[Rfam]
RNA sequence: UGCCCUCUGGAAAGCAGGCCCCCGAGGUCUCGCCGAAGGUGAAAGUCCGGUAAAAACCGGGCGAAACUCUCAGGCAUCCACGACAGAGGGGGAGGA
Numbered sequence: 001u002g003c004c005c006u007c008u009g010g011a012a013a014g015c016a017g018g019c020c021c022c023c024g025a026g027g028u029c030u031c032g033c034c035g036a037a038g039g040u041g042a043a044a045g046u047c048c049g050g051u052a053a054a055a056a057c058c059g060g061g062c063g064a065a066a067c068u069c070u071c072a073g074g075c076a077u078c079c080a081c082g083a084c085a086g087a088g089g090g091g092g093a094g095g096a
Stems, first nucleotide, its partner, number of pairs: 003090007016030004032075003035071002039069001041067001045062007
RNA: Glycine riboswitch aptamer